[Rfam]
RNA: pemK RNA
RNA sequence: AUAAUGAUACUUCUAUUUGGCUUAACAAAUGUUGAGGAAUAGCUCGGUGGAAACGGAGAGGCUGAGAUGCCUAUGU
Number, nucleotide and partner (000 for none) at each position: 001a000002u000003a000004a000005u000006g000007a000008u000009a000010c000011u000012u073013c042014u041015a040016u039017u038018u037019g000020g000021c000022u000023u000024a000025a000026c000027a000028a000029a000030u000031g000032u000033u000034g000035a000036g000037g018038a017039a016040u015041a014042g013043c058044u057045c056046g000047g054048u053049g000050g000051a000052a000053a048054c047055g000056g045057a044058g043059a072060g071061g070062c000063u000064g000065a000066g000067a000068u000069g000070c061071c060072u059073a012074u000075g000076u000